Rfam assigns this 46-nucleotide RNA sequence from Streptomyces violaceusniger to the family "L31-Actinobacteria ribosomal protein leader". The source organism's lineage runs through Bacteria, Bacillati, Actinomycetota, Streptomyces and Streptomyces violaceusniger.

[Rfam]
Nucleotides: 046
Stems, first nucleotide, its partner, number of pairs: 003046003007042004015036004020032004
Number, partner (000 for none) and nucleotide at each position: 001000u002000c003046g004045g005044u006000c007042c008041c009040g010039g011000u012000u013000c014000a015036c016035g017034a018033c019000a020032g021031g022030g023029c024000a025000u026000u027000c028000c029023g030022c031021c032020c033018g034017u035016c036015g037000a038000c039010c040009c041008g042007g043000u044005g045004c046003c